[Rfam]
RNA sequence: UACUAGCCCGGAUAGUAGUGAAAAUCCUUUAUUGCUAUUUUAGCCUUUUUGGAGGCGAGAAAUAGCAAUAAAGAUUGUAGCGGAUAGCCGGAUUAGCU
Numbered sequence: 001u002a003c004u005a006g007c008c009c010g011g012a013u014a015g016u017a018g019u020g021a022a023a024a025u026c027c028u029u030u031a032u033u034g035c036u037a038u039u040u041u042a043g044c045c046u047u048u049u050u051g052g053a054g055g056c057g058a059g060a061a062a063u064a065g066c067a068a069u070a071a072a073g074a075u076u077g078u079a080g081c082g083g084a085u086a087g088c089c090g091g092a093u094u095a096g097c098u
Stems, first nucleotide, its partner, number of pairs: 009090003013086002018081002023076004029071013
Description
Rfam assigns this 98-nucleotide RNA sequence from Flavobacterium pygoscelis to the family "Flavo-1 RNA". The match comes from Rfam's covariance-model search (74 bits). The family's RNA type in Rfam is small RNA. The organism belongs to Flavobacterium, within Bacteria.